RNA sequence: GUAGUUGGGUCCCCAAGUUUUUGGAAUGCUCCAAACUC
Numbered sequence: 001g002u003a004g005u006u007g008g009g010u011c012c013c014c015a016a017g018u019u020u021u022u023g024g025a026a027u028g029c030u031c032c033a034a035a036c037u038c
Stems, first nucleotide, its partner, number of pairs: 003018001005016004020035006

The family of this 38-nucleotide sequence is "Plastid psbT antisense RNA". The literature on the family includes a 2023 paper in Plant Commun by Richter et al., "Retrograde signaling in plants: A critical review focusing on the GUN pathway and beyond". Rfam's curators put it in the seed alignment. Rfam describes the family as follows. Plastid-psbT-asRNA is an antisense RNA (asRNA) motif reported in Plastids It has been shown that psbT expression is controlled by two antisense RNAs originated from psbN transcription by the nuclear-encoded polymerase (NEP), in which the short antisense RNA hybridizes to psbT CDS, thereby stabilizing psbT transcript while blocking its translation during photooxidative stress. The base pairs follow the family's consensus structure, which was predicted with LocARNA.